[Rfam]
RNA sequence: GAAGAUUCCAACGGUUCUCGUAGUGGUGAUAGGGCGCAUGGGCACGGUGGCGUAGCCAUCCGGCGAAAGCACCCAUGCGCGGCAAGCAGGCUCCUGACGGGGCCUUUUUUUAUGCCCCGCA
Dot-bracket structure: ......(.(................).).....(((((((((...(((((.....)))))..((....)).))))))))).....(.(((((((....))))))))...............
The family of this 121-nucleotide RNA sequence from Neorhizobium galegae is "Rhizobiales sRNA Atu_C8".
A search with the family's covariance model found it, with a score of 105 bits.
The source organism's lineage runs through Bacteria, Pseudomonadati, Alphaproteobacteria, Rhizobiaceae and Neorhizobium galegae bv. orientalis.